[Rfam]
About this RNA:
Rfam assigns this 67-nucleotide RNA sequence from Platysternon megacephalum to the family "nhaA-I RNA". It is annotated as a riboswitch. The organism belongs to Platysternon, within Eukaryota.
RNA sequence: GGGUGCCCGGGGACGUUUGCAGCUUCCCUGAUCCACGGGCAGGUUUCGUGUCGGUCGGGCCGCCGCA
Dot-bracket structure: ....(((((.((....................)).)))))........(((.(((......))))))
Numbered sequence: 001g002g003g004u005g006c007c008c009g010g011g012g013a014c015g016u017u018u019g020c021a022g023c024u025u026c027c028c029u030g031a032u033c034c035a036c037g038g039g040c041a042g043g044u045u046u047c048g049u050g051u052c053g054g055u056c057g058g059g060c061c062g063c064c065g066c067a
Stems, first nucleotide, its partner, number of pairs: 005040005011034002049067003053064003